A member of the RNA family "L31-Actinobacteria ribosomal protein leader", 51 nucleotides long.

RNA sequence: GCGGUACCGGUUCACGCUCUGCUGGUUCUCCGGCAAGGCGACCCGGCGACC
Dot-bracket structure: ..(((.((((....((((.((((((....)))))).))))..))))..)))